[Rfam]
RNA sequence: CUUCUACUUUAACAUGGAGGUGCUUUCUGUAUACACAAAAAAGUAAGUGCUUCCAUGUUUUAGCAGAGG
Numbered sequence: 001c002u003u004c005u006a007c008u009u010u011a012a013c014a015u016g017g018a019g020g021u022g023c024u025u026u027c028u029g030u031a032u033a034c035a036c037a038a039a040a041a042a043g044u045a046a047g048u049g050c051u052u053c054c055a056u057g058u059u060u061u062a063g064c065a066g067a068g069g
Stems, first nucleotide, its partner, number of pairs: 001069003005065001007063002011059015027043002
Dot-bracket structure: (((.(.((..(((((((((((((((.((.............)).)))))))))))))))..)).).)))
A member of the RNA family "mir-302 microRNA precursor family" from Varanus komodoensis, 69 nucleotides long. NCBI's taxonomy places the organism under Eukaryota, Metazoa, Eumetazoa, Toxicofera, Varanus. A reference for the family is Mineno et al. (2006), "The expression profile of microRNAs in mouse embryos", Nucleic Acids Res. The family has 49 seed sequences and 2,090 matches in Rfam 15.1.